Shown here is a 71-nucleotide RNA sequence from Nicotiana tabacum, a member of the family "MIR6151 microRNA precursor family". It scores 76 bits against the family's covariance model.
[Rfam]
RNA sequence: AUUCGUUGGAUUCAUGUGAGGCAUUGGAUUGAUUUCGGUCAAUCCGAGCCCCACAGUCAUCCGGGGUUCAU
Numbered sequence: 001a002u003u004c005g006u007u008g009g010a011u012u013c014a015u016g017u018g019a020g021g022c023a024u025u026g027g028a029u030u031g032a033u034u035u036c037g038g039u040c041a042a043u044c045c046g047a048g049c050c051c052c053a054c055a056g057u058c059a060u061c062c063g064g065g066g067u068u069c070a071u
Stems, first nucleotide, its partner, number of pairs: 004066001006064002009061003015055004020050003024047009